[Rfam]
Nucleotides: 087
Base pairs, nucleotide, nucleotide: 004084005083006082007081011077012076013075014074016071018069019068020067021066023064024063025062026061027060028059029058030057032055033054
Number, partner (000 for none) and nucleotide at each position: 001000g002000a003000g004084u005083u006082g007081a008000a009000u010000u011077u012076g013075a014074g015000a016071a017000c018069u019068g020067g021066a022000u023064g024063g025062a026061a027060c028059c029058a030057a031000a032055u033054c034000u035000u036000g037000u038000c039000g040000g041000g042000a043000a044000a045000g046000c047000c048000u049000g050000a051000c052000a053000a054033g055032a056000c057030u058029u059028g060027g061026u062025u063024u064023c065000c066021u067020c068019c069018a070000a071016u072000a073000u074014c075013u076012c077011a078000c079000g080000c081007u082006c083005a084004g085000u086000u087000g

MIR2275 microRNA precursor family: an 87-nucleotide RNA sequence from Eragrostis curvula. Taxonomically the source falls in Eragrostis (Eukaryota, Viridiplantae, commelinids, Eragrostideae). The base pairs follow the family's consensus structure, which was predicted with RNAalifold.